[Rfam]
RNA sequence: CGACUCUGGAAAGCGAUCCGCCGCGAGCGGCGGGUCCGCCGACGGUGAAAGCACCUCCGCCCUUGACUCAGCGGGCGGGAUGCGAAACUCUCAGGCCCAUGACAGAGGGGGA
Numbered sequence: 001c002g003a004c005u006c007u008g009g010a011a012a013g014c015g016a017u018c019c020g021c022c023g024c025g026a027g028c029g030g031c032g033g034g035u036c037c038g039c040c041g042a043c044g045g046u047g048a049a050a051g052c053a054c055c056u057c058c059g060c061c062c063u064u065g066a067c068u069c070a071g072c073g074g075g076c077g078g079g080a081u082g083c084g085a086a087a088c089u090c091u092c093a094g095g096c097c098c099a100u101g102a103c104a105g106a107g108g109g110g111g112a
Stems, first nucleotide, its partner, number of pairs: 001110001004107005015036009038096003041092002045090001047088001051083002
Description
Glycine riboswitch aptamer: a 112-nucleotide RNA from Microbacterium terrae. A search with the family's covariance model found it, with a score of 39 bits. Taxonomically the source falls in Microbacterium (Bacteria, Actinomycetota, Actinomycetes, Micrococcales).